This 66-nucleotide RNA belongs to the Rfam family "DUF3800-VIII RNA".
The sequence is in the family's curated seed alignment.
The family's RNA type in Rfam is small RNA.
Bacteroidetes, Cyanobacteria, Firmicutes, Planctomycetes (1 example), Proteobacteria, Tenericutes (1 example).
RNA sequence: UAGACCCUGUUUCAGUCGAAGUCCAACGUCAUACGUCGGGUAUUUAUGUAGGCUGAAUGGGGUUAA
Numbered sequence: 001u002a003g004a005c006c007c008u009g010u011u012u013c014a015g016u017c018g019a020a021g022u023c024c025a026a027c028g029u030c031a032u033a034c035g036u037c038g039g040g041u042a043u044u045u046a047u048g049u050a051g052g053c054u055g056a057a058u059g060g061g062g063u064u065a066a
Stems, first nucleotide, its partner, number of pairs: 001066001003064008012056006021041004026036004